[Rfam]
RNA sequence: AUAAAGCUGAGGAAACAGAAUAGUAAAUUAGGACUAUGUGUCAGAGAGUUGGCGGCAGCUGCAAGCCAAUACAUAGGCUGAUUGAACUCACUGCGGAGGUGCAGCCAUGCUGCCGUUGAUUGCGUUAAAAUCAAGAGAGGACGGCAAGACCGUCAAUCAGGGUGGUACCGCGAUAAAUUCGUCCCUGGC
Numbered sequence: 001a002u003a004a005a006g007c008u009g010a011g012g013a014a015a016c017a018g019a020a021u022a023g024u025a026a027a028u029u030a031g032g033a034c035u036a037u038g039u040g041u042c043a044g045a046g047a048g049u050u051g052g053c054g055g056c057a058g059c060u061g062c063a064a065g066c067c068a069a070u071a072c073a074u075a076g077g078c079u080g081a082u083u084g085a086a087c088u089c090a091c092u093g094c095g096g097a098g099g100u101g102c103a104g105c106c107a108u109g110c111u112g113c114c115g116u117u118g119a120u121u122g123c124g125u126u127a128a129a130a131u132c133a134a135g136a137g138a139g140g141a142c143g144g145c146a147a148g149a150c151c152g153u154c155a156a157u158c159a160g161g162g163u164g165g166u167a168c169c170g171c172g173a174u175a176a177a178u179u180c181g182u183c184c185c186u187g188g189c
Stems, first nucleotide, its partner, number of pairs: 007099002016093003026083006037073003048070006102112004114124003140154005159186004170182004
A member of the RNA family "T-box leader" from Propionispira arboris, 189 nucleotides long. About the family: Uncharged tRNA acts as the effector for transcription antitermination of genes in the T-box leader family. T-boxes are found upstream of many aminoacyl-tRNA synthetase genes and some amino acid biosynthetic genes usually in Gram-positive bacteria. The anticodon of a specific tRNA base pairs to a specifier sequence within the T-box motif, and the NCCA acceptor tail of the tRNA base pairs to a conserved bulge in the T-box antiterminator hairpin. It is annotated as a cis-regulatory leader. The base pairs follow the family's consensus structure, which is taken from published work.